[Rfam]
RNA sequence: AGAUGCUCCAUCUAUAAAUGGAUAAGAUCCCAGUCUUAUUGUAUAGGAGUUAUUGAAAAAUAAAGGAGCAAUAAUUUCCUUCUUCUAUAUAAGAGGGCGUUAUUGCUCCUUUAUU
Numbered sequence: 001a002g003a004u005g006c007u008c009c010a011u012c013u014a015u016a017a018a019u020g021g022a023u024a025a026g027a028u029c030c031c032a033g034u035c036u037u038a039u040u041g042u043a044u045a046g047g048a049g050u051u052a053u054u055g056a057a058a059a060a061u062a063a064a065g066g067a068g069c070a071a072u073a074a075u076u077u078c079c080u081u082c083u084u085c086u087a088u089a090u091a092a093g094a095g096g097g098c099g100u101u102a103u104u105g106c107u108c109c110u111u112u113a114u115u
Stems, first nucleotide, its partner, number of pairs: 007022005062112013076093002080089001
Dot-bracket structure: ......(((((......))))).......................................(((((((((((((.((..(........)..))......)))))))))))))...
RNA: Plastid-psbA-1 3UTR RNA
Organism: Antirhea chinensis